[Rfam]
RNA: Bacteroidetes FopS (family of paralogous sRNAs)
RNA sequence: AUGUUUUUUCAUAGUAUUAGAUUUAAGGUUUACAAAUUGGCUGUCGUGAGACAGCCCUUUUUUUAUAU
Numbered sequence: 001a002u003g004u005u006u007u008u009u010c011a012u013a014g015u016a017u018u019a020g021a022u023u024u025a026a027g028g029u030u031u032a033c034a035a036a037u038u039g040g041c042u043g044u045c046g047u048g049a050g051a052c053a054g055c056c057c058u059u060u061u062u063u064u065a066u067a068u
Stems, first nucleotide, its partner, number of pairs: 039056007